Source information:
Shown here is a 321-nucleotide sequence from Moheibacter sediminis, a member of the family "Bacterial RNase P class A". A reference for the family is Frank and Pace (1998), "Ribonuclease P: unity and diversity in a tRNA processing ribozyme", Annu Rev Biochem. Rfam describes the family as follows. Ribonuclease P (RNase P) is a ubiquitous endoribonuclease, found in archaea, bacteria and eukarya as well as chloroplasts and mitochondria. Its best characterised activity is the generation of mature 5'-ends of tRNAs by cleaving the 5'-leader elements of precursor-tRNAs. Cellular RNase Ps are ribonucleoproteins. RNA from bacterial RNase Ps retains its catalytic activity in the absence of the protein subunit, i.e. it is a ribozyme. Isolated eukaryotic and archaeal RNase P RNA has not been shown to retain its catalytic function, but is still essential for the catalytic activity of the holoenzyme. Although the archaeal and eukaryotic holoenzyme s have a much greater protein content than the bacterial ones, the RNA cores from all the three lineages are homologous -- helices corresponding to P1, P2, P3, P4, and P10/11 are common to all cellular RNase P RNAs. Yet, there is considerable sequence variation, particularly among the eukaryotic RNAs. Identified in Yersinia as Ysr151/RnpB.
[Rfam]
RNA sequence: UCCACAAAUCGCUUUGUCGCUUUUCGUAUUUAUAUGAGAGGAGGAAAGUCCGGACACCGUAGAGCAGCAUAGCGGGUAACGCCCGUCAUUUCGGAGCAAUCCGAAAGAGGACAAGUGCAACAGAAAGCAAGUACAGUUCGGCUGUAGUGAAACCAGGUAAACUCUAUGCGGUGCAAUGCCAUGUAUAUCGGCAGUUAAGGGCUGCUCGUCCGUUGCCGAGGGGUAGGCAGAUAGAUUUCGUUGGUAACAACGAAGCAAGAUAAAUGACAAAGUUCCGAUUUAUUUCGGGAACAGAAUCCGGCUUAUAGAUUUGUUUUAUAA
Numbered sequence: 001u002c003c004a005c006a007a008a009u010c011g012c013u014u015u016g017u018c019g020c021u022u023u024u025c026g027u028a029u030u031u032a033u034a035u036g037a038g039a040g041g042a043g044g045a046a047a048g049u050c051c052g053g054a055c056a057c058c059g060u061a062g063a064g065c066a067g068c069a070u071a072g073c074g075g076g077u078a079a080c081g082c083c084c085g086u087c088a089u090u091u092c093g094g095a096g097c098a099a100u101c102c103g104a105a106a107g108a109g110g111a112c113a114a115g116u117g118c119a120a121c122a123g124a125a126a127g128c129a130a131g132u133a134c135a136g137u138u139c140g141g142c143u144g145u146a147g148u149g150a151a152a153c154c155a156g157g158u159a160a161a162c163u164c165u166a167u168g169c170g171g172u173g174c175a176a177u178g179c180c181a182u183g184u185a186u187a188u189c190g191g192c193a194g195u196u197a198a199g200g201g202c203u204g205c206u207c208g209u210c211c212g213u214u215g216c217c218g219a220g221g222g223g224u225a226g227g228c229a230g231a232u233a234g235a236u237u238u239c240g241u242u243g244g245u246a247a248c249a250a251c252g253a254a255g256c257a258a259g260a261u262a263a264a265u266g267a268c269a270a271a272g273u274u275c276c277g278a279u280u281u282a283u284u285u286c287g288g289g290a291a292c293a294g295a296a297u298c299c300g301g302c303u304u305a306u307a308g309a310u311u312u313g314u315u316u317u318a319u320a321a
Stems, first nucleotide, its partner, number of pairs: 004314007011306001012272007020041009046304003050301005055173004062207004067169005072086005087109001089106007110164002115162002117158002132146006177229004188219005199211004236255008